[Rfam]
RNA sequence: CCGUACGUUUCUUUUGCUUCGCAGUACCGGGGAAAGAACCGCGCCCAACCCCACCAGCCUCCCCGUGGAGGCGCCCUCACUCACACGGGUGAACAAGUCCAACUCAGCUGGAUUUGGGAGCGGUUGCGGGGCAUAUGCUCGCCCCGACAACCCCCAAAAAUGAGACGGCCCCCGUCGGGACGGCAAUCCCGGGCGAGGGCCUGACCAACAAGGAAGUCGCCACUUCCCC
Number, nucleotide and partner (000 for none) at each position: 001c000002c000003g000004u000005a000006c065007g064008u000009u000010u000011c000012u000013u000014u000015u000016g000017c000018u000019u000020c000021g000022c000023a000024g000025u000026a000027c000028c000029g000030g000031g000032g000033a000034a000035a000036g000037a000038a000039c000040c000041g000042c000043g000044c000045c000046c000047a000048a000049c000050c000051c000052c000053a000054c000055c000056a000057g000058c000059c000060u000061c000062c000063c000064c007065g006066u000067g000068g000069a000070g000071g000072c000073g000074c000075c000076c000077u092078c091079a090080c089081u088082c087083a000084c000085a000086c000087g082088g081089g080090u079091g078092a077093a000094c000095a000096a000097g000098u000099c000100c000101a000102a000103c000104u000105c000106a000107g143108c000109u141110g140111g139112a000113u000114u000115u000116g000117g000118g000119a000120g000121c000122g000123g000124u000125u000126g000127c000128g000129g000130g000131g000132c000133a000134u000135a000136u000137g000138c000139u111140c110141g109142c000143c107144c000145c000146g000147a000148c000149a000150a000151c000152c000153c000154c000155c000156a000157a000158a000159a000160a000161u000162g000163a000164g000165a000166c000167g201168g200169c199170c198171c197172c000173c195174g194175u193176c000177g190178g189179g188180a187181c000182g000183g000184c000185a000186a000187u180188c179189c178190c177191g000192g000193g175194c174195g173196a000197g171198g170199g169200c168201c167202u000203g000204a000205c000206c000207a000208a000209c000210a000211a000212g227213g226214a225215a224216g223217u000218c000219g000220c000221c000222a000223c216224u215225u214226c213227c212228c000229c000
RNA: Streptomyces sRNA 4677
Organism: Streptomyces lavendulae